[Rfam]
The family of this 103-nucleotide sequence from Clostridium thermosuccinogenes is "Purine riboswitch aptamer".
The base pairs follow the family's consensus structure, which is taken from published work.

RNA sequence: UAUUAGCAAAUAGUAACGGGCUAUAUAAAUCCACUAAUAUGGUGUGGAUGUCUCUACGUGGUAACCGUAAAUUACCUACGCUAUAGUGUCCCUUUCUAUUGCA
Numbered sequence: 001u002a003u004u005a006g007c008a009a010a011u012a013g014u015a016a017c018g019g020g021c022u023a024u025a026u027a028a029a030u031c032c033a034c035u036a037a038u039a040u041g042g043u044g045u046g047g048a049u050g051u052c053u054c055u056a057c058g059u060g061g062u063a064a065c066c067g068u069a070a071a072u073u074a075c076c077u078a079c080g081c082u083a084u085a086g087u088g089u090c091c092c093u094u095u096c097u098a099u100u101g102c103a
Stems, first nucleotide, its partner, number of pairs: 018089001020087006029049006058079002060076005